[Rfam]
RNA sequence: GGGUCCGGUGCGUCGCCGAUCUCCUGAAAGGACCGGGGGAAAGAACUCCUACCCGCCCGCCCUCCCCGCGCGUGCGCGGCGCCUCACUCGUACGGGUGAGGGGCUUGCACGGCGCUCGCGGAGACGGUUACGUUCGCCGCGACAACCGCACACAGAACGGCCCCCGCCGGGACGGCAAUCCCGGACGAGGGCCUGACCACCCAGGAAGCAGUACCUUCCCG
Numbered sequence: 001g002g003g004u005c006c007g008g009u010g011c012g013u014c015g016c017c018g019a020u021c022u023c024c025u026g027a028a029a030g031g032a033c034c035g036g037g038g039g040a041a042a043g044a045a046c047u048c049c050u051a052c053c054c055g056c057c058c059g060c061c062c063u064c065c066c067c068g069c070g071c072g073u074g075c076g077c078g079g080c081g082c083c084u085c086a087c088u089c090g091u092a093c094g095g096g097u098g099a100g101g102g103g104c105u106u107g108c109a110c111g112g113c114g115c116u117c118g119c120g121g122a123g124a125c126g127g128u129u130a131c132g133u134u135c136g137c138c139g140c141g142a143c144a145a146c147c148g149c150a151c152a153c154a155g156a157a158c159g160g161c162c163c164c165c166g167c168c169g170g171g172a173c174g175g176c177a178a179u180c181c182c183g184g185a186c187g188a189g190g191g192c193c194u195g196a197c198c199a200c201c202c203a204g205g206a207a208g209c210a211g212u213a214c215c216u217u218c219c220c221g
Base pairs, nucleotide, nucleotide: 007201008200009199010198014070015069016068018067084099085098086097087096088095089094111138112137113136114135159193160192161191162190163189165187166186169182170181171180172179204219205218206217207216208215
About this RNA
Rfam assigns this 221-nucleotide RNA from Streptomyces sp. TverLS-915 to the family "Streptomyces sRNA 4677". The pairing is the family consensus, mapped onto this sequence. About the family: Located in the intergenic region between anti-sigma factor SCO4677 gene and a putative regulatory protein gene SCO4676. scr4677 expression requires the SCO4677 activity and scr4677 sRNA itself seem to affect the levels of the SCO4676-associated transcripts. The organism belongs to Streptomyces, within Bacteria.